A member of the RNA family "Small nucleolar RNA SNORA68" from Carlito syrichta, 133 nucleotides long. The source organism's lineage runs through Eukaryota, Bilateria, Craniata, Teleostomi and Carlito. Rfam 15.1 lists 1,079 matches to the family in 643 species. A reference for the family is Ganot et al. (1997), "The family of box ACA small nucleolar RNAs is defined by an evolutionarily conserved secondary structure and ubiquitous sequence elements essential for RNA accumulation", Genes Dev.
RNA sequence: CUGACAUCACAACCCAAGAACUGCUGUUUCCUGUAACACUGGUUUAAACAGGGGUGCGCACAGCAAGUGGAUCUCGUCGCCUUUGGGGGGCUGUGGCUGUGCCCCUCAAAGUGAAUUUGGAGGUUCCACAUUC
Numbered sequence: 001c002u003g004a005c006a007u008c009a010c011a012a013c014c015c016a017a018g019a020a021c022u023g024c025u026g027u028u029u030c031c032u033g034u035a036a037c038a039c040u041g042g043u044u045u046a047a048a049c050a051g052g053g054g055u056g057c058g059c060a061c062a063g064c065a066a067g068u069g070g071a072u073c074u075c076g077u078c079g080c081c082u083u084u085g086g087g088g089g090g091c092u093g094u095g096g097c098u099g100u101g102c103c104c105c106u107c108a109a110a111g112u113g114a115a116u117u118u119g120g121a122g123g124u125u126c127c128a129c130a131u132u133c
Stems, first nucleotide, its partner, number of pairs: 005056004019044005025038004069126007081111011